[Rfam]
RNA: Streptomyces sRNA 4677
RNA sequence: UGCUCCGGUGCCGCCGGCGCUCUUUCCCAAGGACCACGGGGAGAAAGAAACCUCCCAAGCCCCACCCCUCCCGCCCGCGGCGCGGCCUCACUCCCUCGAGUGAAUAUGCCCAACUGGGCUGGAUUUGAGACGGGUUGCCUGCCCUACGCUCAGCACGACGGAACACGACCGCAGGCCACCACGGACCUGUGGCAGGAAAUGUGACGGCCCCCGCCGGGAGUAGCAAUCCCAAUGCGAGGGCCUGACCACCGAGGAAGUUCGGAGCUUCCUG
Number, nucleotide and partner (000 for none) at each position: 001u000002g000003c000004u000005c000006c000007g250008g249009u248010g247011c000012c000013g000014c000015c000016g075017g074018c073019g072020c000021u000022c000023u000024u000025u000026c000027c000028c000029a000030a000031g000032g000033a000034c000035c000036a000037c000038g000039g000040g000041g000042a000043g000044a000045a000046a000047g000048a000049a000050a000051c000052c000053u000054c000055c000056c000057a000058a000059g000060c000061c000062c000063c000064a000065c000066c000067c000068c000069u000070c000071c000072c019073g018074c017075c016076c000077g000078c000079g000080g000081c000082g000083c000084g000085g000086c000087c000088u103089c102090a101091c100092u099093c098094c000095c000096u000097c000098g093099a092100g091101u090102g089103a088104a000105u000106a000107u000108g000109c000110c000111c000112a000113a000114c000115u000116g000117g000118g154119c153120u152121g151122g150123a000124u000125u000126u000127g000128a000129g000130a000131c000132g000133g000134g000135u000136u000137g000138c000139c000140u000141g000142c000143c000144c000145u000146a000147c000148g000149c000150u122151c121152a120153g119154c118155a000156c000157g000158a000159c000160g000161g000162a000163a000164c000165a000166c000167g000168a000169c000170c000171g000172c000173a000174g000175g000176c000177c000178a000179c000180c000181a000182c000183g000184g000185a000186c000187c000188u000189g000190u000191g000192g000193c000194a000195g000196g000197a000198a000199a000200u000201g000202u000203g000204a000205c000206g242207g241208c240209c239210c238211c000212c236213g235214c234215c000216g230217g229218g228219a227220g000221u000222a000223g000224c000225a000226a000227u219228c218229c217230c216231a000232a000233u000234g214235c213236g212237a000238g210239g209240g208241c207242c206243u000244g000245a000246c000247c010248a009249c008250c007251g000252a000253g269254g268255a267256a266257g265258u000259u000260c000261g000262g000263a000264g000265c257266u256267u255268c254269c253270u000271g000